[Rfam]
The record is a 265-nucleotide sequence from Clostridium sp. MD294, which matches "Bacterial large signal recognition particle RNA" in Rfam. A search with the family's covariance model found it, with a score of 190 bits.
RNA sequence: CCGUGCUAGUCGGGGCGUUAGCGGUGUCUUGUAACCCACAAUCCGCUAUAGUGGGGACGAUGUCUAUAGGAGGUAUUUGUUUUGUAUGGUCUGCCCUUUUGCGUUAGUGAUGAAGAUUGAGUCUUGUGCAACAGGAACUUAUGAACCGUGUCAGGGUCGGAAGGCAGCAGCACUAAGUAAGCACUCUUGUGUGCCGCAGGGUAGCUUAGUCGGAGCUAAUAAUAAAGGUAACGCAUGGAAAGCAAUAUCGAAUAUAGAUGCACGG
Numbered sequence: 001c002c003g004u005g006c007u008a009g010u011c012g013g014g015g016c017g018u019u020a021g022c023g024g025u026g027u028c029u030u031g032u033a034a035c036c037c038a039c040a041a042u043c044c045g046c047u048a049u050a051g052u053g054g055g056g057a058c059g060a061u062g063u064c065u066a067u068a069g070g071a072g073g074u075a076u077u078u079g080u081u082u083u084g085u086a087u088g089g090u091c092u093g094c095c096c097u098u099u100u101g102c103g104u105u106a107g108u109g110a111u112g113a114a115g116a117u118u119g120a121g122u123c124u125u126g127u128g129c130a131a132c133a134g135g136a137a138c139u140u141a142u143g144a145a146c147c148g149u150g151u152c153a154g155g156g157u158c159g160g161a162a163g164g165c166a167g168c169a170g171c172a173c174u175a176a177g178u179a180a181g182c183a184c185u186c187u188u189g190u191g192u193g194c195c196g197c198a199g200g201g202u203a204g205c206u207u208a209g210u211c212g213g214a215g216c217u218a219a220u221a222a223u224a225a226a227g228g229u230a231a232c233g234c235a236u237g238g239a240a241a242g243c244a245a246u247a248u249c250g251a252a253u254a255u256a257g258a259u260g261c262a263c264g265g
Base pairs, nucleotide, nucleotide: 001265002264003263004262005261006260009058010057011056012030013029014028015027016026017025018024019023035055036054037053038052039051063258064257065256066255067254068253072249073248074247075246076245079243080242081241082240083239085237086236087235088234092230093229095228096227097226098225099224103220104219106217107216108215115211116210117209118208119207120206121205122204123200124199125198126197127196128195129191130190132189133188134187135186136185138181139180140179141178142177148173149172150171151170156165157164158163